[Rfam]
The family of this 105-nucleotide RNA from Sapajus apella is "Y RNA". Taxonomically the source falls in Sapajus (Eukaryota, Eumetazoa, Amniota, Primates). It is annotated as a non-coding RNA gene.

RNA sequence: GGCUGGUCUGAGUGCAGUGGGGUGUACAAGGAAUUGAUGACAGCCUGUUACAGGUUUCUUUGCUCCUUUUCUAUUUCCACUGCUGCUUCACUCUUCUAGCCUUUA
Numbered sequence: 001g002g003c004u005g006g007u008c009u010g011a012g013u014g015c016a017g018u019g020g021g022g023u024g025u026a027c028a029a030g031g032a033a034u035u036g037a038u039g040a041c042a043g044c045c046u047g048u049u050a051c052a053g054g055u056u057u058c059u060u061u062g063c064u065c066c067u068u069u070u071c072u073a074u075u076u077c078c079a080c081u082g083c084u085g086c087u088u089c090a091c092u093c094u095u096c097u098a099g100c101c102u103u104u105a
Base pairs, nucleotide, nucleotide: 001101002100003099004098005097006096010093011092014086015085016081017080018079019078020077021076028064032060033059